Background: This 94-nucleotide RNA from Myotis davidii belongs to the Rfam family "Small nucleolar RNA U83B". A reference for the family is Jady and Kiss (2000), "Characterisation of the U83 and U84 small nucleolar RNAs: two novel 2'-O-ribose methylation guide RNAs that lack complementarities to ribosomal RNAs", Nucleic Acids Res. NCBI's taxonomy places the organism under Eukaryota, Opisthokonta, Deuterostomia, Amniota, Myotis. It is annotated as a C/D-box small nucleolar RNA.

[Rfam]
RNA sequence: AUUGUUCGGUGAUGAGGCUCUGGAAUGAGCGCUGGGCACAGCGCCCGAGUCACGCUGCGGAAACAUUCCUUGCUGCCUUCCUUCUGAGAACAGC
Numbered sequence: 001a002u003u004g005u006u007c008g009g010u011g012a013u014g015a016g017g018c019u020c021u022g023g024a025a026u027g028a029g030c031g032c033u034g035g036g037c038a039c040a041g042c043g044c045c046c047g048a049g050u051c052a053c054g055c056u057g058c059g060g061a062a063a064c065a066u067u068c069c070u071u072g073c074u075g076c077c078u079u080c081c082u083u084c085u086g087a088g089a090a091c092a093g094c
Stems, first nucleotide, its partner, number of pairs: 002093004